The family of this 74-nucleotide RNA sequence from Bromdenvirus dyoedafos is "tRNA". The source organism's lineage runs through Viruses, Uroviricota, Caudoviricetes, Bromdenvirus and Bromdenvirus dyoedafos. The match comes from Rfam's covariance-model search (61 bits). The family's consensus secondary structure is taken from published work.
RNA sequence: CUGGCUGUAGCUCAACUUGGUAGAGCGCUGGCUUUGGGUGCCAGGGGUUCGGGGUUCAAAUCCUCGCAGUCAGA
Numbered sequence: 001c002u003g004g005c006u007g008u009a010g011c012u013c014a015a016c017u018u019g020g021u022a023g024a025g026c027g028c029u030g031g032c033u034u035u036g037g038g039u040g041c042c043a044g045g046g047g048u049u050c051g052g053g054g055u056u057c058a059a060a061u062c063c064u065c066g067c068a069g070u071c072a073g074a
Stems, first nucleotide, its partner, number of pairs: 001073007010026004028044005050066005